[Rfam]
RNA sequence: CGUUAAAAACAAAAAAGAUAAUGAAAACUAUAUUCGUAAAUACAUAUUGGUGGUGGCACUCGUUACAACUCCGACAGUCGUAAGGGAGCAGCGCUCGUAUGUAUAUAUAAUAUAUUAUAGAAAUGAAAAGAGCCCUGUC
Numbered sequence: 001c002g003u004u005a006a007a008a009a010c011a012a013a014a015a016a017g018a019u020a021a022u023g024a025a026a027a028c029u030a031u032a033u034u035c036g037u038a039a040a041u042a043c044a045u046a047u048u049g050g051u052g053g054u055g056g057c058a059c060u061c062g063u064u065a066c067a068a069c070u071c072c073g074a075c076a077g078u079c080g081u082a083a084g085g086g087a088g089c090a091g092c093g094c095u096c097g098u099a100u101g102u103a104u105a106u107a108u109a110a111u112a113u114a115u116u117a118u119a120g121a122a123a124u125g126a127a128a129a130g131a132g133c134c135c136u137g138u139c
Stems, first nucleotide, its partner, number of pairs: 036108003040104008049095004056089002059086003066080001068078003